[Rfam]
RNA: Selenocysteine insertion sequence 1
Organism: Maylandia zebra
RNA sequence: AUGGCGUUCAUGAAGGCCAGGCCUUAAAACAGAUUCUGAAGGGCCCGGCUGGAUGUUCCUCGCCAU
Numbered sequence: 001a002u003g004g005c006g007u008u009c010a011u012g013a014a015g016g017c018c019a020g021g022c023c024u025u026a027a028a029a030c031a032g033a034u035u036c037u038g039a040a041g042g043g044c045c046c047g048g049c050u051g052g053a054u055g056u057u058c059c060u061c062g063c064c065a066u
Stems, first nucleotide, its partner, number of pairs: 001066005015050004020045005030038003